[Rfam]
RNA sequence: GAAUAUUUCGUACAUAGAACUUAUAUAUACCCAUAAUUGGAUGGGCGUUUCUACCAACUACCGUAAUAGUUGCCUAUAAGUUUUCACUGGCUAUGC
Numbered sequence: 001g002a003a004u005a006u007u008u009c010g011u012a013c014a015u016a017g018a019a020c021u022u023a024u025a026u027a028u029a030c031c032c033a034u035a036a037u038u039g040g041a042u043g044g045g046c047g048u049u050u051c052u053a054c055c056a057a058c059u060a061c062c063g064u065a066a067u068a069g070u071u072g073c074c075u076a077u078a079a080g081u082u083u084u085c086a087c088u089g090g091c092u093a094u095g096c
Base pairs, nucleotide, nucleotide: 018082019081020080021079022078023077024076025075030045031044032043033042034041055072056071057070058069059068060067
The record is a 96-nucleotide RNA sequence from Lactonifactor longoviformis, which matches "Purine riboswitch aptamer" in Rfam. It scores 54 bits against the family's covariance model.